[Rfam]
RNA sequence: GGCCUAAAGCGUCCGUAGCCGGUUUAAUAAGUCUCUGGUGAAAUCCUGCAGCUUAACUGUGGGAAUUGCUGGAGAUACUAUUAGACUUGAGAUCGGGAGAGGUUAGAGGUACUCCCAGGGUAGAGGUGAAAUUCUGUAAUCCUGGGAGGACCGCCUGUUGCGAAGGCGUCUGACUGGAACGAUUCUGACGGUGAGGGACGAAAGCUAGGGGCGCGAACCGGAUUAGAUACCCGGGUAGUCCUAGCUGUAAACGAUGCGGACUUGGUGUUGGGGUGGCUUUGAGCUGUCCCAGUGCCGAAGGGAAGCUGUUAAGUCCGCCGCCUGGGAAGUACGGUCGCAAGACUGAAACUUAAAGGAAU
Numbered sequence: 001g002g003c004c005u006a007a008a009g010c011g012u013c014c015g016u017a018g019c020c021g022g023u024u025u026a027a028u029a030a031g032u033c034u035c036u037g038g039u040g041a042a043a044u045c046c047u048g049c050a051g052c053u054u055a056a057c058u059g060u061g062g063g064a065a066u067u068g069c070u071g072g073a074g075a076u077a078c079u080a081u082u083a084g085a086c087u088u089g090a091g092a093u094c095g096g097g098a099g100a101g102g103u104u105a106g107a108g109g110u111a112c113u114c115c116c117a118g119g120g121u122a123g124a125g126g127u128g129a130a131a132u133u134c135u136g137u138a139a140u141c142c143u144g145g146g147a148g149g150a151c152c153g154c155c156u157g158u159u160g161c162g163a164a165g166g167c168g169u170c171u172g173a174c175u176g177g178a179a180c181g182a183u184u185c186u187g188a189c190g191g192u193g194a195g196g197g198a199c200g201a202a203a204g205c206u207a208g209g210g211g212c213g214c215g216a217a218c219c220g221g222a223u224u225a226g227a228u229a230c231c232c233g234g235g236u237a238g239u240c241c242u243a244g245c246u247g248u249a250a251a252c253g254a255u256g257c258g259g260a261c262u263u264g265g266u267g268u269u270g271g272g273g274u275g276g277c278u279u280u281g282a283g284c285u286g287u288c289c290c291a292g293u294g295c296c297g298a299a300g301g302g303a304a305g306c307u308g309u310u311a312a313g314u315c316c317g318c319c320g321c322c323u324g325g326g327a328a329g330u331a332c333g334g335u336c337g338c339a340a341g342a343c344u345g346a347a348a349c350u351u352a353a354a355g356g357a358a359u
Base pairs, nucleotide, nucleotide: 001322002321003320009319011199012198013197014196016193018192019191020190022086023085024084025083026082027081028080030079031078032075033074034073035072036071037070038069039068040067045063046062047061048060049059050058051057090186091185092184093182094181095180101175102174103173104172105171106170107169108152109151112148113147114146115145116144117143118142119141123134124133125132160167161166204245205244206243207242208241209240213239214238218234219233220232221231256318257317258316259315260314261313264296265295266294267293268292269291270290271289272288273287274286275285276284277283300307301306324351325350326349333344334343335342336341
RNA: Archaeal small subunit ribosomal RNA, nucleotides 504 to 862